[Rfam]
Shown here is a 158-nucleotide RNA from Bradyrhizobium sp. LTSP885, a member of the family "Bradyrhizobiaceae sRNA BjrC80".
RNA sequence: AGUUGGGAAGUGUCGCCGGCAUUAGUCGCCCCCGCCGACGGCGCUUUCCGGGGGGCGAGCGCCUUGCUCGCUCCCUUUGGUACCUUUCGAUGGAAUACGCCCCCCUCCGUCGGAAGGGCUAAGGGCGGUGAGGUUCCCCAGCUUCACCGCCCGCUUUU
Numbered sequence: 001a002g003u004u005g006g007g008a009a010g011u012g013u014c015g016c017c018g019g020c021a022u023u024a025g026u027c028g029c030c031c032c033c034g035c036c037g038a039c040g041g042c043g044c045u046u047u048c049c050g051g052g053g054g055g056c057g058a059g060c061g062c063c064u065u066g067c068u069c070g071c072u073c074c075c076u077u078u079g080g081u082a083c084c085u086u087u088c089g090a091u092g093g094a095a096u097a098c099g100c101c102c103c104c105c106u107c108c109g110u111c112g113g114a115a116g117g118g119c120u121a122a123g124g125g126c127g128g129u130g131a132g133g134u135u136c137c138c139c140a141g142c143u144u145c146a147c148c149g150c151c152c153g154c155u156u157u158u
Stems, first nucleotide, its partner, number of pairs: 009045007017037004051075011076122002080120001083117002087113004092108003123152012

By type it is a small RNA.
A search with the family's covariance model found it, with a score of 144 bits.